[Rfam]
RNA sequence: CCCUCGGUCGAAAAAUCGCCGUUCGAAGCUUACACACAGAGACACUCGCUCUCGGGCGCAGCGUCUCACCAAUUCAAACAUGCUUUGGGAGAAAGUCCCCGGACGACUCCUUCUCGGAGCCUGCGGAAACGCGCCGCCAUAGAAGCACUUGCGGCUUACCUCGGCUCCUUGGCCCCCUCGCAUCGACGCCCUGCCCUGCCCGUCGCUACAUCUGCUUCGUGCGAUAUCCUCUCGUCGUCCCUUACGGUCGUGCGUCUCCGGCCCUUUUGGACGAAGAUAUGAGUCCGUGCCGGGUGGCGUGCGUCCUGGGAAACUCCGGCGAGAGGGCUAGCGCUUGCUGAUGACGGGUGGACGCCUGGGGUGCAAGUCGGCGAAGGGGCAUCGGGCGCCGAGGAAUGUUGUCGAAAUUGAUAGGUAUGCGAUUGCCCGGCCUCAAGCUGGGUUACCCGAUGGGGCUUAUUCUCGAGGCGAGG
Number, nucleotide and partner (000 for none) at each position: 001c000002c473003c472004u471005c470006g469007g000008u466009c465010g464011a463012a000013a000014a424015a423016u422017c421018g420019c419020c000021g000022u000023u089024c087025g086026a085027a084028g083029c082030u000031u000032a000033c000034a000035c000036a000037c000038a000039g067040a066041g065042a064043c063044a000045c061046u000047c000048g000049c000050u000051c000052u000053c000054g000055g000056g000057c000058g000059c000060a000061g045062c000063g043064u042065c041066u040067c039068a000069c000070c000071a000072a000073u000074u000075c000076a000077a000078a000079c000080a000081u000082g029083c028084u027085u026086u025087g024088g000089g023090a000091g000092a000093a458094a457095g456096u000097c455098c454099c453100c452101g000102g000103a000104c000105g000106a000107c000108u000109c000110c000111u000112u000113c000114u000115c000116g000117g000118a000119g000120c000121c000122u133123g132124c131125g130126g000127a000128a000129a000130c125131g124132c123133g122134c154135c153136g152137c151138c000139a149140u000141a000142g000143a000144a000145g000146c000147a000148c000149u139150u000151g137152c136153g135154g134155c000156u000157u000158a000159c000160c000161u000162c000163g000164g000165c000166u000167c000168c000169u000170u000171g000172g000173c000174c000175c000176c000177c000178u000179c000180g000181c000182a000183u000184c000185g000186a000187c000188g000189c000190c000191c000192u000193g000194c000195c000196c000197u000198g000199c000200c000201c000202g000203u000204c000205g000206c000207u000208a000209c000210a000211u000212c000213u000214g000215c000216u000217u000218c000219g000220u000221g000222c000223g000224a000225u000226a000227u000228c000229c000230u000231c000232u000233c000234g000235u000236c000237g000238u000239c000240c000241c000242u000243u000244a000245c000246g000247g000248u000249c000250g000251u000252g000253c000254g000255u000256c000257u000258c000259c000260g000261g000262c000263c000264c000265u000266u000267u000268u000269g000270g369271a368272c367273g000274a000275a000276g000277a000278u000279a000280u000281g000282a000283g000284u000285c000286c000287g000288u000289g000290c000291c000292g000293g000294g000295u000296g000297g000298c000299g000300u000301g000302c000303g000304u000305c000306c000307u000308g000309g000310g000311a000312a000313a000314c000315u000316c000317c000318g000319g000320c000321g000322a000323g000324a000325g000326g000327g000328c000329u000330a000331g000332c000333g000334c000335u000336u000337g000338c000339u000340g000341a000342u000343g000344a000345c000346g000347g000348g000349u000350g000351g000352a000353c363354g362355c361356c360357u000358g000359g000360g356361g355362u354363g353364c000365a000366a000367g272368u271369c270370g000371g000372c000373g000374a000375a000376g000377g000378g000379g000380c000381a000382u000383c000384g000385g000386g000387c000388g000389c000390c000391g000392a000393g000394g000395a000396a000397u000398g000399u000400u000401g000402u000403c000404g000405a000406a000407a000408u000409u000410g000411a000412u000413a000414g000415g000416u000417a000418u000419g019420c018421g017422a016423u015424u014425g000426c442427c441428c440429g439430g438431c437432c000433u000434c000435a000436a000437g431438c430439u429440g428441g427442g426443u000444u000445a000446c000447c000448c000449g000450a000451u000452g100453g099454g098455g097456c095457u094458u093459a000460u000461u000462c000463u011464c010465g009466a008467g000468g000469c006470g005471a004472g003473g002

This 473-nucleotide RNA from Ophiocordyceps camponoti-saundersi belongs to the Rfam family "RNase MRP". The family's RNA type in Rfam is ribozyme. Clan: RNaseP clan. Rfam links the family to the GO terms rRNA processing, ribonuclease MRP activity and ribonuclease MRP complex. From the family's description: RNase MRP is an enzymatically active ribonucleoprotein with two distinct roles in eukaryotes. In mitochondria it plays a direct role in the initiation of mitochondrial DNA replication. In the nucleus it is involved in precursor rRNA processing, where it cleaves the internal transcribed spacer 1 between 18S and 5.8S rRNAs. Despite distinct functions, RNase MRP has been shown to be evolutionarily related to RNase P. Like eukaryotic RNase P, RNase MRP is not catalytically active without associated protein subunits. The match comes from Rfam's covariance-model search (98 bits).